[Rfam]
RNA: Purine riboswitch aptamer
RNA sequence: UAUGAAUUAAAUCGUUUUAUCCGUAUAAUCCUAGGGAAUAGGGCCCGGGAGUCUCUACAAAACCACCGUAAAUGGUUUUACUACAAUCGGAUAUAGGAAUGCAUUGA
Numbered sequence: 001u002a003u004g005a006a007u008u009a010a011a012u013c014g015u016u017u018u019a020u021c022c023g024u025a026u027a028a029u030c031c032u033a034g035g036g037a038a039u040a041g042g043g044c045c046c047g048g049g050a051g052u053c054u055c056u057a058c059a060a061a062a063c064c065a066c067c068g069u070a071a072a073u074g075g076u077u078u079u080a081c082u083a084c085a086a087u088c089g090g091a092u093a094u095a096g097g098a099a100u101g102c103a104u105u106g107a
Stems, first nucleotide, its partner, number of pairs: 018093005023084003029050004034046003059079007